About this RNA
Rfam assigns this 50-nucleotide RNA from Pseudodonghicola xiamenensis to the family "SAM/SAH riboswitch aptamer". Rfam links the family to the GO terms S-adenosylmethionine metabolic process and regulation of gene expression. The base pairs follow the family's consensus structure, which is taken from published work.
RNA sequence: GGUUCGUCACAACGGCUUCCUGGCGUGGCGGAUGUAACUCGAAUGGAGCA
Numbered sequence: 001g002g003u004u005c006g007u008c009a010c011a012a013c014g015g016c017u018u019c020c021u022g023g024c025g026u027g028g029c030g031g032a033u034g035u036a037a038c039u040c041g042a043a044u045g046g047a048g049c050a
Base pairs, nucleotide, nucleotide: 004031005030006029007028008027009026010025013022014021015049016048017047019046020045